mir-44 microRNA precursor family: a 77-nucleotide RNA from Haemonchus placei.
[Rfam]
RNA sequence: UUCAUGCCCACCUGGAUGUCGAUCUUAGUCAUACGGAUUGAGUAUAUGACUAGAGACACAUUCAGCUGGGCUAAUGC
Numbered sequence: 001u002u003c004a005u006g007c008c009c010a011c012c013u014g015g016a017u018g019u020c021g022a023u024c025u026u027a028g029u030c031a032u033a034c035g036g037a038u039u040g041a042g043u044a045u046a047u048g049a050c051u052a053g054a055g056a057c058a059c060a061u062u063c064a065g066c067u068g069g070g071c072u073a074a075u076g077c
Stems, first nucleotide, its partner, number of pairs: 006071004012065008023055001027051007
Background: Pairs were carried over by alignment from the consensus structure, which was predicted with RNAalifold. The match comes from Rfam's covariance-model search (56 bits). Taxonomically the source falls in Haemonchus (Eukaryota, Eumetazoa, Bilateria, Ecdysozoa).